[Rfam]
Annotation
The record is a 112-nucleotide sequence from Oerskovia sp. Root918, which matches "SAM (S-adenosyl methionine) riboswitch aptamer" in Rfam. Gene Ontology terms of the family: regulation of gene expression and S-adenosylmethionine metabolic process. About the family: SAM-IV is a mRNA element that regulates gene expression via direct sensing of S-adenosylmethionine (SAM or AdoMet). SAM-IV riboswitches share conserved nucleotide positions with the previously described SAM-I riboswitches sequence analysis and molecular recognition experiments suggest that SAM-I and SAM-IV riboswitches share similar ligand binding sites, but have different scaffolds. Pairs were carried over by alignment from the consensus structure, which is taken from published work.

Nucleotides: 112
Base pairs, nucleotide, nucleotide: 001077002076003075004074009038011037012036013035014034015033016032021030022029039064040063041062044060045059046058048055049054080101081100082099083098084097085096086095087094088093
Number, partner (000 for none) and nucleotide at each position: 001077g002076g003075u004074c005000a006000c007000g008000a009038g010000c011037a012036c013035c014034a015033g016032c017000g018000c019000c020000a021030a022029g023000c024000c025000c026000c027000g028000g029022c030021u031000c032016g033015c034014u035013g036012g037011u038009c039064a040063g041062c042000a043000a044060c045059c046058c047000c048055u049054c050000c051000c052000a053000c054049g055048a056000c057000g058046g059045g060044g061000u062041g063040c064039u065000c066000c067000g068000g069000g070000a071000g072000a073000u074004g075003a076002c077001c078000u079000g080101g081100u082099c083098g084097c085096g086095c087094c088093g089000g090000c091000a092000c093088c094087g095086g096085c097084g098083c099082g100081g101080c102000a103000a104000g105000c106000g107000u108000g109000c110000a111000g112000c
The organism belongs to Oerskovia, within Bacteria. On this family, see Weinberg et al., RNA 2008: "The aptamer core of SAM-IV riboswitches mimics the ligand-binding site of SAM-I riboswitches".